[Rfam]
RNA sequence: UGCUCCGGUGCCACGGGCGGUCUCUUUCCCGCAAGAACCGAGGUGAAAGGACCCCACCAAGCCCCACCCCUCCCGCCCGCUGAUCAAACUCACUCGGGCGAGUGAAUAUGCCCAACUCAACUGGAUUUGGGAGGGGUUGCCUGCCUUACGCUCAGCGCGACCGAGCACCACCGCAGACAUGCGGCCGAAAAUGCGACGGCCCCCGCCGGGACUGCGAAUCCCAAUGCGAGGGCCUGACCACCGAGGAAGGCCAACUUCCCG
Numbered sequence: 001u002g003c004u005c006c007g008g009u010g011c012c013a014c015g016g017g018c019g020g021u022c023u024c025u026u027u028c029c030c031g032c033a034a035g036a037a038c039c040g041a042g043g044u045g046a047a048a049g050g051a052c053c054c055c056a057c058c059a060a061g062c063c064c065c066a067c068c069c070c071u072c073c074c075g076c077c078c079g080c081u082g083a084u085c086a087a088a089c090u091c092a093c094u095c096g097g098g099c100g101a102g103u104g105a106a107u108a109u110g111c112c113c114a115a116c117u118c119a120a121c122u123g124g125a126u127u128u129g130g131g132a133g134g135g136g137u138u139g140c141c142u143g144c145c146u147u148a149c150g151c152u153c154a155g156c157g158c159g160a161c162c163g164a165g166c167a168c169c170a171c172c173g174c175a176g177a178c179a180u181g182c183g184g185c186c187g188a189a190a191a192u193g194c195g196a197c198g199g200c201c202c203c204c205g206c207c208g209g210g211a212c213u214g215c216g217a218a219u220c221c222c223a224a225u226g227c228g229a230g231g232g233c234c235u236g237a238c239c240a241c242c243g244a245g246g247a248a249g250g251c252c253a254a255c256u257u258c259c260c261g
Base pairs, nucleotide, nucleotide: 007242008241009240010239016077017076018075019074090105091104092103093102094101095100121155122154123153124152198234199233200232201231202230204228205227206226208222209221210220211219245259246258247257248256249255

Notes
The family of this 261-nucleotide RNA from Streptomyces phaeofaciens is "Streptomyces sRNA 4677". Pairs were carried over by alignment from the consensus structure. Rfam classes the family as a small RNA. NCBI's taxonomy places the organism under Bacteria, Actinomycetota, Kitasatosporales, Streptomycetaceae, Streptomyces.